This 70-nucleotide RNA from Luteimonas gilva belongs to the Rfam family "Fluoride riboswitch aptamer (crcB RNA motif)".
The source organism's lineage runs through Bacteria, Pseudomonadati, Gammaproteobacteria, Lysobacterales and Luteimonas.
Gene Ontology terms of the family: positive regulation of gene expression and response to fluoride.

[Rfam]
RNA sequence: AUCCGCAUGGGAGAUGGCAUUCCUCCCCGAACCGCCGGCUUCGCAGCCCGCUGAUGAUGCCUACCGGACC
Numbered sequence: 001a002u003c004c005g006c007a008u009g010g011g012a013g014a015u016g017g018c019a020u021u022c023c024u025c026c027c028c029g030a031a032c033c034g035c036c037g038g039c040u041u042c043g044c045a046g047c048c049c050g051c052u053g054a055u056g057a058u059g060c061c062u063a064c065c066g067g068a069c070c
Stems, first nucleotide, its partner, number of pairs: 010026004016061006034051002037048004
Dot-bracket structure: .........[[[[..((((((.]]]].......((.((((....)))).))....)))))).........